RNA sequence: UAUUAGGUUGGUGAAAAAGUAAUUGUGGUUUUUGCCAUUAAUAGUUAUGGCAGAAACCACAAUUACUUUUUCAACAACCUAAUA
Numbered sequence: 001u002a003u004u005a006g007g008u009u010g011g012u013g014a015a016a017a018a019g020u021a022a023u024u025g026u027g028g029u030u031u032u033u034g035c036c037a038u039u040a041a042u043a044g045u046u047a048u049g050g051c052a053g054a055a056a057c058c059a060c061a062a063u064u065a066c067u068u069u070u071u072c073a074a075c076a077a078c079c080u081a082a083u084a
Stems, first nucleotide, its partner, number of pairs: 001084010012073027040045001
The record is an 84-nucleotide RNA sequence from Pongo abelii, which matches "mir-548 microRNA precursor family" in Rfam. Rfam links the family to the GO terms RISC complex and miRNA-mediated post-transcriptional gene silencing. The base pairs follow the family's consensus structure, which was predicted with WAR. The organism belongs to Pongo, within Eukaryota. The literature on the family includes a 2010 paper in BMC Biol by Witten et al., "Ultra-high throughput sequencing-based small RNA discovery and discrete statistical biomarker analysis in a collection of cervical tumours and matched controls".